[Rfam]
The family of this 75-nucleotide sequence from Macleaya cordata is "Plastid-ycf2 5UTR RNA".
The match comes from Rfam's covariance-model search (68 bits).
Rfam 15.1 lists 3,521 matches to the family in 417 species.
RNA sequence: GUGCAUCCCGCAGGAAUUGAACCUACGAAUUUUCCAAUGUUUUUUUGGGCGCUUUAACUAUUCAGCCAUGGAUGC
Numbered sequence: 001g002u003g004c005a006u007c008c009c010g011c012a013g014g015a016a017u018u019g020a021a022c023c024u025a026c027g028a029a030u031u032u033u034c035c036a037a038u039g040u041u042u043u044u045u046u047g048g049g050c051g052c053u054u055u056a057a058c059u060a061u062u063c064a065g066c067c068a069u070g071g072a073u074g075c
Base pairs, nucleotide, nucleotide: 003075004074005073006072007071008070010026012024013023014022041068045065046064047063048062049061051059
By type it is a cis-regulatory element.
On this family, see Richter et al., Plant Commun 2023: "Retrograde signaling in plants: A critical review focusing on the GUN pathway and beyond".
From the family's description: Plastid ycf2 is a non-coding RNA (ncRNA) recognised in plastids.